[Rfam]
RNA sequence: UAAAAGUCCCGAACAGCAGCCAUGAGCCAGACCGUGUUUACACGGGAUGGUUCAUGGAUAUUGGACGGGCUGACCUGGAUGAACAAGUAGAGCGAUCGCUCGAAUUGUGAAUACAGGUACGAUGUCGAGAGUGCACAGCACGGAGACAUCGACUUUUU
Numbered sequence: 001u002a003a004a005a006g007u008c009c010c011g012a013a014c015a016g017c018a019g020c021c022a023u024g025a026g027c028c029a030g031a032c033c034g035u036g037u038u039u040a041c042a043c044g045g046g047a048u049g050g051u052u053c054a055u056g057g058a059u060a061u062u063g064g065a066c067g068g069g070c071u072g073a074c075c076u077g078g079a080u081g082a083a084c085a086a087g088u089a090g091a092g093c094g095a096u097c098g099c100u101c102g103a104a105u106u107g108u109g110a111a112u113a114c115a116g117g118u119a120c121g122a123u124g125u126c127g128a129g130a131g132u133g134c135a136c137a138g139c140a141c142g143g144a145g146a147c148a149u150c151g152a153c154u155u156u157u158u
Stems, first nucleotide, its partner, number of pairs: 002157006008069004015062002018059001020057010032045005073118005079112002083108004090101004120151007131141004
The record is a 158-nucleotide RNA from Clostridiales bacterium CHKCI001, which matches "Clostridiales-1 RNA" in Rfam. Rfam classes the family as a small RNA. The base pairs follow the family's consensus structure, which is taken from published work. The match comes from Rfam's covariance-model search (100 bits). The organism belongs to Eubacteriales, within Bacteria. The family has 194 seed sequences and 1,172 matches in Rfam 15.1.